The family of this 80-nucleotide RNA sequence is "let-7 microRNA precursor family". Its Rfam clan is "let-7 microRNA precursor clan". Rfam 15.1 lists 8,694 matches to the family in 797 species. Rfam describes the family as follows. This family represents the microRNAs (miRNA) let-7 and mir-98. let-7 was identified from a study of developmental timing in C. elegans, and was later shown to be part of a much larger class of non-coding RNAs termed miRNAs. A reference for the family is Liu et al. (2018), "Cryo-EM Structure of Human Dicer and Its Complexes with a Pre-miRNA Substrate", Cell. Its family is annotated with RISC complex and miRNA-mediated post-transcriptional gene silencing in the Gene Ontology. The base pairs follow the family's consensus structure, which was predicted with RNAalifold.

[Rfam]
RNA sequence: UGGGGGUGAGGUAGUAGGUUGUAUAGUUUGGGGGCUCUGCCCUGCUAUGGGAUAACUAUACUAUCUACUGUCUUUCCUGA
Numbered sequence: 001u002g003g004g005g006g007u008g009a010g011g012u013a014g015u016a017g018g019u020u021g022u023a024u025a026g027u028u029u030g031g032g033g034g035c036u037c038u039g040c041c042c043u044g045c046u047a048u049g050g051g052a053u054a055a056c057u058a059u060a061c062u063a064u065c066u067a068c069u070g071u072c073u074u075u076c077c078u079g080a
Base pairs, nucleotide, nucleotide: 001080003078004077005076006075008074009073010072011071012070013069014068015067016066017065018064019063021061022060023059024058025057026056027055032042033041034040035039045050